[Rfam]
RNA sequence: AGGAGCAGAGGCUCUGGCAGCUUUUGCAGCGUUUAUAUAAACUGAAAUAUAUAUACGCGUUCCG
Numbered sequence: 001a002g003g004a005g006c007a008g009a010g011g012c013u014c015u016g017g018c019a020g021c022u023u024u025u026g027c028a029g030c031g032u033u034u035a036u037a038u039a040a041a042c043u044g045a046a047a048u049a050u051a052u053a054u055a056c057g058c059g060u061u062c063c064g
Base pairs, nucleotide, nucleotide: 002063003062004061007025008024009023010022011021012020013019029058030057031056032055034053035052036051037050038049039048

Shown here is a 64-nucleotide sequence from Drosophila kikkawai, a member of the family "Nanos 3' UTR translation control element". The literature on the family includes a 2000 paper in Mol Cell by Crucs et al., "Overlapping but distinct RNA elements control repression and activation of nanos translation". NCBI's taxonomy places the organism under Eukaryota, Protostomia, Hexapoda, Neoptera, Sophophora. The base pairs follow the family's consensus structure, which is taken from published work. Gene Ontology terms of the family: anterior/posterior axis specification, embryo, protein binding and negative regulation of translation. About the family: The Nanos protein in Drosophila is required for correct anterior/posterior patterning in the Drosophila embryo. Translation of the nanos mRNA is repressed in the bulk cytoplasm and activated in the posterior region. Repression is mediated by a translation control element (TCE) in the 3' UTR of the mRNA. This element forms a Y-shaped structure, part of which is recognised by the Smaug protein leading to translational repression. By type it is a cis-regulatory element. It scores 82 bits against the family's covariance model.